[Rfam]
RNA sequence: UGUUUUGUUCUGUGGGCCAUAGUAAAAGUGUUUACACAGCAGCCCGUCAGAUUCCUAUGAAAUCUGUGAAUUCUGCU
Numbered sequence: 001u002g003u004u005u006u007g008u009u010c011u012g013u014g015g016g017c018c019a020u021a022g023u024a025a026a027a028g029u030g031u032u033u034a035c036a037c038a039g040c041a042g043c044c045c046g047u048c049a050g051a052u053u054c055c056u057a058u059g060a061a062a063u064c065u066g067u068g069a070a071u072u073c074u075g076c077u
Base pairs, nucleotide, nucleotide: 013046014045015044016043017042021077022076023075024074026072027071028040029039048066049065050064051063052062053061
Rfam assigns this 77-nucleotide RNA sequence from Microcaecilia unicolor to the family "Mammalian CPEB3 ribozyme".
It scores 42 bits against the family's covariance model.
Rfam links the family to the GO term RNA nuclease activity.
Taxonomically the source falls in Microcaecilia (Eukaryota, Opisthokonta, Chordata, Amphibia).